RNA: mir-8364 microRNA precursor family
Nucleotides: 061
Stems, first nucleotide, its partner, number of pairs: 001059007010050001012048006020040003
Number, partner (000 for none) and nucleotide at each position: 001059u002058c003057u004056u005055c006054a007053u008000u009000u010050c011000a012048c013047g014046u015045a016044c017043u018000c019000c020040c021039u022038c023000a024000c025000c026000g027000g028000u029000c030000a031000g032000a033000c034000a035000u036000g037000u038022g039021a040020g041000a042000u043017a044016g045015u046014g047013u048012g049000u050010g051000a052000a053007a054006u055005g056004a057003a058002g059001a060000g061000a